[Rfam]
RNA sequence: CUGGGCUGCAUUGUAGUUGCAUUGCAUGUCAAUUAAUAGUGCAGUGUUCCUCCAGUGCAACCUAG
Numbered sequence: 001c002u003g004g005g006c007u008g009c010a011u012u013g014u015a016g017u018u019g020c021a022u023u024g025c026a027u028g029u030c031a032a033u034u035a036a037u038a039g040u041g042c043a044g045u046g047u048u049c050c051u052c053c054a055g056u057g058c059a060a061c062c063u064a065g
Stems, first nucleotide, its partner, number of pairs: 001065004007059007015051002019047001021045007

This 65-nucleotide RNA sequence from Photinus pyralis belongs to the Rfam family "mir-33 microRNA precursor family".
On this family, see Li et al., BMC Genomics 2009: "Direct sequencing and expression analysis of a large number of miRNAs in Aedes aegypti and a multi-species survey of novel mosquito miRNAs".
The family has 73 seed sequences and 1,467 matches in Rfam 15.1.
A search with the family's covariance model found it, with a score of 63 bits.